Notes: The record is a 63-nucleotide sequence from Colobus angolensis, which matches "U7 small nuclear RNA" in Rfam. The family's consensus secondary structure was predicted with PFOLD.
[Rfam]
RNA sequence: AAGUGUUACAGCUCUUUUCAAAUUUGUCUAGCAGCCUUUUUGGGUUAGGCCAGAAAGUUCCCC
Dot-bracket structure: .................................(.((((((((......))))))))..)...